[Rfam]
RNA sequence: UAAGCCAGAAGAGGUGCGUCGCCCAGGUAAAGUGUCAGAGGAGCCGUGAUCCGCUGAAGACAUUCGAGGGGGAGCGACGCCGAGACACGGUGAUUUCGGCCAUCAGCGUGUCGACUGCAGGGGCUGAAUCCCCUGGGUUGUCACCAGUGCCGUUCCUUUAGGGCGGUCAACAAGGUGGAGCGCUUCUGGGUGU
Numbered sequence: 001u002a003a004g005c006c007a008g009a010a011g012a013g014g015u016g017c018g019u020c021g022c023c024c025a026g027g028u029a030a031a032g033u034g035u036c037a038g039a040g041g042a043g044c045c046g047u048g049a050u051c052c053g054c055u056g057a058a059g060a061c062a063u064u065c066g067a068g069g070g071g072g073a074g075c076g077a078c079g080c081c082g083a084g085a086c087a088c089g090g091u092g093a094u095u096u097c098g099g100c101c102a103u104c105a106g107c108g109u110g111u112c113g114a115c116u117g118c119a120g121g122g123g124c125u126g127a128a129u130c131c132c133c134u135g136g137g138u139u140g141u142c143a144c145c146a147g148u149g150c151c152g153u154u155c156c157u158u159u160a161g162g163g164c165g166g167u168c169a170a171c172a173a174g175g176u177g178g179a180g181c182g183c184u185u186c187u188g189g190g191u192g193u
Base pairs, nucleotide, nucleotide: 006188007187008186009185010184011183016080017079018078019077020076021075022074024072031064032063033062034061035060036059084112085111086110087109088108089107091105092104093103094102113139114138115137116136118135119134120133121132122131123130141178142177143176144175145174
Rfam assigns this 193-nucleotide sequence from Yersinia frederiksenii to the family "Lysine riboswitch aptamer". About the family: Riboswitches are metabolite binding domains within certain messenger RNAs that serve as precision sensors for their corresponding targets. Taxonomically the source falls in Yersinia frederiksenii (Bacteria, Gammaproteobacteria, Enterobacterales, Yersiniaceae).